[Rfam]
RNA: Small nucleolar RNA SNORA51
RNA sequence: AGCCUCCUGGUGCUUACACAGACUGUGUUCUUACACUGAUUGUAUAGAAAGAGAAGGCAAAGUAAAUUUACCCCAUAUACAUCUCAACCCAGGCCCUGUGCCUGGUCUGUAUUGUGAAUGGGGCGACGUGC
Numbered sequence: 001a002g003c004c005u006c007c008u009g010g011u012g013c014u015u016a017c018a019c020a021g022a023c024u025g026u027g028u029u030c031u032u033a034c035a036c037u038g039a040u041u042g043u044a045u046a047g048a049a050a051g052a053g054a055a056g057g058c059a060a061a062g063u064a065a066a067u068u069u070a071c072c073c074c075a076u077a078u079a080c081a082u083c084u085c086a087a088c089c090c091a092g093g094c095c096c097u098g099u100g101c102c103u104g105g106u107c108u109g110u111a112u113u114g115u116g117a118a119u120g121g122g123g124c125g126a127c128g129u130g131c
Base pairs, nucleotide, nucleotide: 002058003057004056005055007053008052019042020041021040025036026035027034028033071123072122073121074120075119076118085109086108089105090104091103092102093101094100